[Rfam]
RNA sequence: UGAUAAGGAACACAAGCUAACGUCUUCUCGCGUCCUGCGAAAACGCUUGUGUGACCAGCCCGAGUGAAUCCGG
Numbered sequence: 001u002g003a004u005a006a007g008g009a010a011c012a013c014a015a016g017c018u019a020a021c022g023u024c025u026u027c028u029c030g031c032g033u034c035c036u037g038c039g040a041a042a043a044c045g046c047u048u049g050u051g052u053g054a055c056c057a058g059c060c061c062g063a064g065u066g067a068a069u070c071c072g073g
Stems, first nucleotide, its partner, number of pairs: 011051007028040004059073001
RNA: Bacillaceae-1 RNA
Organism: Salipaludibacillus agaradhaerens